This 80-nucleotide sequence from Crocodylus porosus belongs to the Rfam family "Mammalian CPEB3 ribozyme". The base pairs follow the family's consensus structure, which is taken from published work. It scores 42 bits against the family's covariance model. The organism belongs to Crocodylus, within Eukaryota.
RNA sequence: AGAGGUCUCAAGCUUGAGGCCCUAGCAGAAGCAUUCAUGGCACAGCCUUGUCAGAUUCCAACAAAUCUGUGUAUUCUGCU
Numbered sequence: 001a002g003a004g005g006u007c008u009c010a011a012g013c014u015u016g017a018g019g020c021c022c023u024a025g026c027a028g029a030a031g032c033a034u035u036c037a038u039g040g041c042a043c044a045g046c047c048u049u050g051u052c053a054g055a056u057u058c059c060a061a062c063a064a065a066u067c068u069g070u071g072u073a074u075u076c077u078g079c080u
Stems, first nucleotide, its partner, number of pairs: 017048004024080007031043001052069006